[Rfam]
RNA sequence: UGAUUAAAACCAAUAUCGCCGAAGACAGUAGGUGCCGCAAGGCAUAAGGAGAAAACGCCUACCGAGGAAUUUGUUAGCAGGAUUUGACUAUUCAAGCUCUCUGUCUUUGACUGGGAGCUUUUUUCAGGCUUUU
Numbered sequence: 001u002g003a004u005u006a007a008a009a010c011c012a013a014u015a016u017c018g019c020c021g022a023a024g025a026c027a028g029u030a031g032g033u034g035c036c037g038c039a040a041g042g043c044a045u046a047a048g049g050a051g052a053a054a055a056c057g058c059c060u061a062c063c064g065a066g067g068a069a070u071u072u073g074u075u076a077g078c079a080g081g082a083u084u085u086g087a088c089u090a091u092u093c094a095a096g097c098u099c100u101c102u103g104u105c106u107u108u109g110a111c112u113g114g115g116a117g118c119u120u121u122u123u124u125c126a127g128g129c130u131u132u133u
Stems, first nucleotide, its partner, number of pairs: 028062006034043003096118006103111003